Shown here is a 201-nucleotide RNA sequence from Medicago truncatula, a member of the family "MIR2619 microRNA precursor family". The match comes from Rfam's covariance-model search (178 bits). Taxonomically the source falls in Medicago (Eukaryota, Streptophyta, Euphyllophyta, Spermatophyta). The base pairs follow the family's consensus structure, which was predicted with RNAalifold.
RNA sequence: AAACAACCACCUAUGUAUUGGAUCUUUGGCAGUUUUUUGCCCCCAAUACCACUUUUGAUUUAGUCUUCGCUGACGUGACACCCACAAUGGCCGACACGUGGCACCUCACUUAAGGGAUGUGGGUGUCACGUCAGCGAAGACUGAGUCAAAAGUGAUAUUGGCGGCCAAAACUGCAAAAGAUCCAAUAUAUAGGGGCUAUUU
Numbered sequence: 001a002a003a004c005a006a007c008c009a010c011c012u013a014u015g016u017a018u019u020g021g022a023u024c025u026u027u028g029g030c031a032g033u034u035u036u037u038u039g040c041c042c043c044c045a046a047u048a049c050c051a052c053u054u055u056u057g058a059u060u061u062a063g064u065c066u067u068c069g070c071u072g073a074c075g076u077g078a079c080a081c082c083c084a085c086a087a088u089g090g091c092c093g094a095c096a097c098g099u100g101g102c103a104c105c106u107c108a109c110u111u112a113a114g115g116g117a118u119g120u121g122g123g124u125g126u127c128a129c130g131u132c133a134g135c136g137a138a139g140a141c142u143g144a145g146u147c148a149a150a151a152g153u154g155a156u157a158u159u160g161g162c163g164g165c166c167a168a169a170a171c172u173g174c175a176a177a178a179g180a181u182c183c184a185a186u187a188u189a190u191a192g193g194g195g196c197u198a199u200u201u
Stems, first nucleotide, its partner, number of pairs: 001201002005197001007195002012191016029174007037167001039165003043161004073131002076128008